Rfam assigns this 112-nucleotide sequence from Trichococcus palustris to the family "SAM riboswitch aptamer (S box leader)". The SAM riboswitch is found upstream of a number of genes which code for proteins involved in methionine or cysteine biosynthesis in Gram-positive bacteria. The SAM riboswitch acts at the level of transcription termination control. The predicted structure consists of a complex stem-loop region followed by a single stem loop terminator region. The family has 457 seed sequences and 9,625 matches in Rfam 15.1. The match comes from Rfam's covariance-model search (88 bits).
RNA sequence: UCUUUAUCAAGAGAGAUUGAGGGACUGGCCCUAUGACAUCUCAGCAACCGACUUGUGUUUGACUCACAUAAGUACGGUGCUAAAUCCUGCAGAGAAAUCUGAAAGAUAAGGA
Numbered sequence: 001u002c003u004u005u006a007u008c009a010a011g012a013g014a015g016a017u018u019g020a021g022g023g024a025c026u027g028g029c030c031c032u033a034u035g036a037c038a039u040c041u042c043a044g045c046a047a048c049c050g051a052c053u054u055g056u057g058u059u060u061g062a063c064u065c066a067c068a069u070a071a072g073u074a075c076g077g078u079g080c081u082a083a084a085u086c087c088u089g090c091a092g093a094g095a096a097a098u099c100u101g102a103a104a105g106a107u108a109a110g111g112a
Base pairs, nucleotide, nucleotide: 001112002111003110004109005108006107007106008105013042014041015040016039017038021031022030023029025089027087028086043081044080045079046078048077049076051073052072053071054070055069056068057067058066085104090101091100092099093098